RNA: Magnesium riboswitch aptamer (Magnesium responsive RNA element)
RNA sequence: UUUACCGGAGAUUUUAUGGACCCUGAUCCCACUCCUCAUCCUCGAUGGAGCCCCCUUUCUUUCCGGUAAACCUGUUUUGCGCCGCUUUACCGGAAAACGUAAAGCAGCGAUGUCUU
Numbered sequence: 001u002u003u004a005c006c007g008g009a010g011a012u013u014u015u016a017u018g019g020a021c022c023c024u025g026a027u028c029c030c031a032c033u034c035c036u037c038a039u040c041c042u043c044g045a046u047g048g049a050g051c052c053c054c055c056u057u058u059c060u061u062u063c064c065g066g067u068a069a070a071c072c073u074g075u076u077u078u079g080c081g082c083c084g085c086u087u088u089a090c091c092g093g094a095a096a097a098c099g100u101a102a103a104g105c106a107g108c109g110a111u112g113u114c115u116u
Stems, first nucleotide, its partner, number of pairs: 001070011017031003037050001039048002081108002084105007